[Rfam]
RNA: RgsA sRNA
RNA sequence: UAUGGAAUCAAGACGUAUUCCAAAUCUGUUUAAAAAACGAUCAACACACGCUGGCAGCGCGCCAAUCCUGGCCAAUACUUGAAGUGUUGGCGCGGCGCAUCCCCCCCAAGUGGCGCGCUGAUAAAGGUGCCCAGGGACCGUGUGCCUUUGUUUUACUCCUAAUGGUCUUAACCCGGAUUCCCCCCCCAGAACCCGG
Numbered sequence: 001u002a003u004g005g006a007a008u009c010a011a012g013a014c015g016u017a018u019u020c021c022a023a024a025u026c027u028g029u030u031u032a033a034a035a036a037a038c039g040a041u042c043a044a045c046a047c048a049c050g051c052u053g054g055c056a057g058c059g060c061g062c063c064a065a066u067c068c069u070g071g072c073c074a075a076u077a078c079u080u081g082a083a084g085u086g087u088u089g090g091c092g093c094g095g096c097g098c099a100u101c102c103c104c105c106c107c108a109a110g111u112g113g114c115g116c117g118c119u120g121a122u123a124a125a126g127g128u129g130c131c132c133a134g135g136g137a138c139c140g141u142g143u144g145c146c147u148u149u150g151u152u153u154u155a156c157u158c159c160u161a162a163u164g165g166u167c168u169u170a171a172c173c174c175g176g177a178u179u180c181c182c183c184c185c186c187c188a189g190a191a192c193c194c195g196g
Stems, first nucleotide, its partner, number of pairs: 039167005086122004091117002094114001096112003123149008131140001173196004178191003
Dot-bracket structure: ......................................(((((..........................................((((.((.(.(((...........))).).)).))))(((((((((........).)))))))).............))))).....((((.(((........))).))))